Shown here is a 97-nucleotide sequence, a member of the family "L2-Alphaproteobacteria ribosomal protein leader". The base pairs follow the family's consensus structure, which is taken from published work.
[Rfam]
RNA sequence: GGCCACCCUAGUAGGGCGUUUCCAGCGGGGAACAAACGGACGGGGGGCUAUAACCUAAGGGUAGGCAAUCGCCUGCCUCACAAAACGGAAGACAGAA
Numbered sequence: 001g002g003c004c005a006c007c008c009u010a011g012u013a014g015g016g017c018g019u020u021u022c023c024a025g026c027g028g029g030g031a032a033c034a035a036a037c038g039g040a041c042g043g044g045g046g047g048c049u050a051u052a053a054c055c056u057a058a059g060g061g062u063a064g065g066c067a068a069u070c071g072c073c074u075g076c077c078u079c080a081c082a083a084a085a086c087g088g089a090a091g092a093c094a095g096a097a
Stems, first nucleotide, its partner, number of pairs: 001049004006045003060077007
The family's RNA type in Rfam is cis-regulatory leader. On this family, see Eckert and Weinberg, BMC Microbiol 2020: "Discovery of 20 novel ribosomal leader candidates in bacteria and archaea".